A member of the RNA family "Small nucleolar RNA SNORA47" from Glareola pratincola, 129 nucleotides long. A search with the family's covariance model found it, with a score of 84 bits. Its family is annotated with nucleolus and RNA processing in the Gene Ontology. For this family Rfam cites "RNomics: an experimental approach that identifies 201 candidates for novel, small, non-messenger RNAs in mouse" (Huttenhofer et al., EMBO J, 2001). Rfam classes the family as an H/ACA-box small nucleolar RNA.

[Rfam]
RNA sequence: UGGAGGACUGAGAAGGUAAGACAGUUCAACUUUAUGCUGUUUCUUACUGGUUAUAGCCUCCAAAAUUAUAAUAGUGCAACGGCAACUCAUGUUCCCCUCCUGACAUGAGGGAAAGCAGUACUGCAUUUG
Numbered sequence: 001u002g003g004a005g006g007a008c009u010g011a012g013a014a015g016g017u018a019a020g021a022c023a024g025u026u027c028a029a030c031u032u033u034a035u036g037c038u039g040u041u042u043c044u045u046a047c048u049g050g051u052u053a054u055a056g057c058c059u060c061c062a063a064a065a066u067u068a069u070a071a072u073a074g075u076g077c078a079a080c081g082g083c084a085a086c087u088c089a090u091g092u093u094c095c096c097c098u099c100c101u102g103a104c105a106u107g108a109g110g111g112a113a114a115g116c117a118g119u120a121c122u123g124c125a126u127u128u129g
Base pairs, nucleotide, nucleotide: 002061003060004059005058006057015048016047017046018045019042020041021040022039023038024037025036081122082121085119086118087117093113095111096110097109100107